[Rfam]
Background
Rfam assigns this 125-nucleotide RNA from Brassica oleracea to the family "MIR9563 microRNA precursor family". NCBI's taxonomy places the organism under Eukaryota, Magnoliopsida, eudicotyledons, Brassica, Brassica oleracea. The base pairs follow the family's consensus structure, which was predicted with RNAalifold. Rfam 15.1 lists 5,832 matches to the family in 9 species.

RNA sequence: GGAAUAUAAGAACACGUCUCUUAACUUUUAACUAAAAAAAUUAAGAAUUGGCUCUUAAAACUUUUAUUUAAGAAACGGUUCUUAAUUUUUUUAGUUAAAAGUUAAGAGACGAAUUCUUAUAUUUC
Number, nucleotide and partner (000 for none) at each position: 001g125002g124003a123004a122005u121006a120007u119008a118009a117010g116011a115012a114013c000014a000015c111016g110017u109018c108019u107020c106021u105022u104023a103024a102025c101026u100027u099028u098029u097030a096031a095032c094033u093034a092035a091036a090037a089038a088039a087040a000041u085042u084043a083044a082045g081046a080047a079048u000049u000050g000051g000052c000053u000054c000055u000056u000057a000058a000059a000060a000061c000062u000063u000064u000065u000066a000067u000068u000069u000070a000071a000072g000073a000074a000075a000076c000077g000078g000079u047080u046081c045082u044083u043084a042085a041086u000087u039088u038089u037090u036091u035092u034093a033094g032095u031096u030097a029098a028099a027100a026101g025102u024103u023104a022105a021106g020107a019108g018109a017110c016111g015112a000113a000114u012115u011116c010117u009118u008119a007120u006121a005122u004123u003124u002125c001